[Rfam]
RNA sequence: CGCAAGUACAUCUGCUAGUGCUCCCAACGAAAGUUGAUAGCGAUGUGCACGUUUAGGAGAUAAAUAGCUAGUAUCUUUCUACUCGGAUUCCCCUCUGUCGUCAUAGAGGGGUUUC
Numbered sequence: 001c002g003c004a005a006g007u008a009c010a011u012c013u014g015c016u017a018g019u020g021c022u023c024c025c026a027a028c029g030a031a032a033g034u035u036g037a038u039a040g041c042g043a044u045g046u047g048c049a050c051g052u053u054u055a056g057g058a059g060a061u062a063a064a065u066a067g068c069u070a071g072u073a074u075c076u077u078u079c080u081a082c083u084c085g086g087a088u089u090c091c092c093c094u095c096u097g098u099c100g101u102c103a104u105a106g107a108g109g110g111g112u113u114u115c
Stems, first nucleotide, its partner, number of pairs: 002015003022087003025036004038081003042075005047068002051065005090111009
This 115-nucleotide RNA sequence from Nepovirus ribis belongs to the Rfam family "Blackcurrant reversion virus cap-independent translation element". On this family, see Miller et al., Biochem Soc Trans 2007: "The amazing diversity of cap-independent translation elements in the 3'-untranslated regions of plant viral RNAs". The family's RNA type in Rfam is cis-regulatory element. Lineage of the source: Viruses > Riboviria > Pisuviricota > Secoviridae > Nepovirus ribis. The base pairs follow the family's consensus structure.